[Rfam]
RNA sequence: GGAACCCGCCUUUCAGGCAUCCUCUCCUAAAAACUUUUACGGCCGGUCCCUUGGGAUCGGCCUUUUUUUUGGGUUUC
Numbered sequence: 001g002g003a004a005c006c007c008g009c010c011u012u013u014c015a016g017g018c019a020u021c022c023u024c025u026c027c028u029a030a031a032a033a034c035u036u037u038u039a040c041g042g043c044c045g046g047u048c049c050c051u052u053g054g055g056a057u058c059g060g061c062c063u064u065u066u067u068u069u070u071g072g073g074u075u076u077c
Stems, first nucleotide, its partner, number of pairs: 008018004041062009
Makes More Granules Regulator RNA (mmgR): a 77-nucleotide RNA sequence from Sphingomonas sp. Leaf17. A reference for the family is Ceizel Borella et al. (2016), "Expression of the Sinorhizobium meliloti small RNA gene mmgR is controlled by the nitrogen source", FEMS Microbiol Lett. The pairing is the family consensus, mapped onto this sequence. The match comes from Rfam's covariance-model search (48 bits). Rfam's curators write: SuhB later renamed mmgR (makes more granules regulator) was a putative non-coding RNA found multiple times in the Agrobacterium tumefaciens genome and related alpha-proteobacteria. Other non-coding RNAs uncovered in the same analysis include: speF, ybhL, metA, and serC.Several studies inSinorhizobium meliloti showed that suhB element is indeed a non-coding RNA:firstly it was detected on Northern blot and called Sm8RNA, secondly in an RNAseq study referred to as SmelC689.The mutant phenotype's (strain lacking the small RNA) cytoplasm contains higher content of polyhydroxybutyrate (PBH)storage granules than wild type strain. The sRNA is required to limit the PBH intracellular accumulation when the nitrogen-fixing Sinorhizobium meliloti is under condition of surplus carbon in relation to nitrogen. It has been renamed to mmgR. Further study confirmed that mmgR fine-tunes the regulation of PBH storage.Northern blot confirmed the expression of the sRNA in other rhizobia species.